Overview:
The family of this 75-nucleotide RNA sequence from Streptomyces diacarni is "ASpks TB sRNA".
RNA sequence: CUUCACGGAGCCAAGCCACAGAGGCUGAUCGCCGGACCGAUCCUGCCCAUACGUCGCCAGCAGCGCCUGCGCCUC
Dot-bracket structure: .............((((.....))))......(....((...(((.(.(....).).)))...))...)......
The source organism's lineage runs through Bacteria, Bacillati, Actinomycetota, Actinomycetes and Streptomyces.
The match comes from Rfam's covariance-model search (80 bits).
Pairs were carried over by alignment from the consensus structure, which is taken from published work.
The family has 77 seed sequences and 9,052 matches in Rfam 15.1.